[Rfam]
This 93-nucleotide RNA sequence from Jannaschia donghaensis belongs to the Rfam family "Rhodo-rpoB RNA".
Lineage of the source: Bacteria > Pseudomonadati > Pseudomonadota > Rhodobacterales > Jannaschia.
A search with the family's covariance model found it, with a score of 39 bits.
The base pairs follow the family's consensus structure, which is taken from published work.
RNA sequence: AGGACGGCGGAGCACCUGUGGGAAGGUGCGCCAGAUGGUCCUUUCCGAUGAUCCAUUCGCAGGCUGUGGUCCCCGGUGCCCGACGGGGACGCG
Numbered sequence: 001a002g003g004a005c006g007g008c009g010g011a012g013c014a015c016c017u018g019u020g021g022g023a024a025g026g027u028g029c030g031c032c033a034g035a036u037g038g039u040c041c042u043u044u045c046c047g048a049u050g051a052u053c054c055a056u057u058c059g060c061a062g063g064c065u066g067u068g069g070u071c072c073c074c075g076g077u078g079c080c081c082g083a084c085g086g087g088g089a090c091g092c093g
Base pairs, nucleotide, nucleotide: 001042002041003040004039005038010031012029013028014027015026016025017024065093066092067091068090071088072087073086074085075084